[Rfam]
RNA sequence: AAGUGGACUAGGUCGGGCGGUUAGGCCCCGCUCGUCACCCGUGAGGUAGUCUUUAGCGGGGACCGAACAGCGGGCGCGUCCGGUCUGACCGGCGCGGGCCCCGAGAGCCAACGUGGAAGCCUCGUCCGCCGGGGACAGCGGUCCGCGACGCCCGCUCGCAGGAGCGGUCCGUCGCGGUUCGUCGGCGACACUGGGUCAGGCGCGGAAGCGAGCAGCCCACCGCCGGACGCCCGUCGCUCGUCGGGUCGCGGGGUGGAGAAGGCAACCGGGAUACCCCACGUCGGAACGCCGGGCCACCCCGCUUGUCCGCCA
Numbered sequence: 001a002a003g004u005g006g007a008c009u010a011g012g013u014c015g016g017g018c019g020g021u022u023a024g025g026c027c028c029c030g031c032u033c034g035u036c037a038c039c040c041g042u043g044a045g046g047u048a049g050u051c052u053u054u055a056g057c058g059g060g061g062a063c064c065g066a067a068c069a070g071c072g073g074g075c076g077c078g079u080c081c082g083g084u085c086u087g088a089c090c091g092g093c094g095c096g097g098g099c100c101c102c103g104a105g106a107g108c109c110a111a112c113g114u115g116g117a118a119g120c121c122u123c124g125u126c127c128g129c130c131g132g133g134g135a136c137a138g139c140g141g142u143c144c145g146c147g148a149c150g151c152c153c154g155c156u157c158g159c160a161g162g163a164g165c166g167g168u169c170c171g172u173c174g175c176g177g178u179u180c181g182u183c184g185g186c187g188a189c190a191c192u193g194g195g196u197c198a199g200g201c202g203c204g205g206a207a208g209c210g211a212g213c214a215g216c217c218c219a220c221c222g223c224c225g226g227a228c229g230c231c232c233g234u235c236g237c238u239c240g241u242c243g244g245g246u247c248g249c250g251g252g253g254u255g256g257a258g259a260a261g262g263c264a265a266c267c268g269g270g271a272u273a274c275c276c277c278a279c280g281u282c283g284g285a286a287c288g289c290c291g292g293g294c295c296a297c298c299c300c301g302c303u304u305g306u307c308c309g310c311c312a
Stems, first nucleotide, its partner, number of pairs: 003310006011064004015033006038060005069303006078294004082289001089284006096277003100270004107263003112258001114256001119254007126244003130240004134235003138231001139229002141179001143177008152167006182226006192219005201210003
Rfam assigns this 312-nucleotide RNA sequence from Halorubrum lacusprofundi to the family "Archaeal signal recognition particle RNA". Its family is annotated with SRP-dependent cotranslational protein targeting to membrane, signal sequence recognition and signal recognition particle, plasma membrane targeting in the Gene Ontology. Pairs were carried over by alignment from the consensus structure, which is taken from published work. Rfam's curators put it in the seed alignment. Its Rfam clan is "SRP clan". NCBI's taxonomy places the organism under Archaea, Halobacteria, Halobacteriales, Haloferacaceae, Halorubrum lacusprofundi. For this family Rfam cites "Towards the structure of the mammalian signal recognition particle" (Wild et al., Curr Opin Struct Biol, 2002).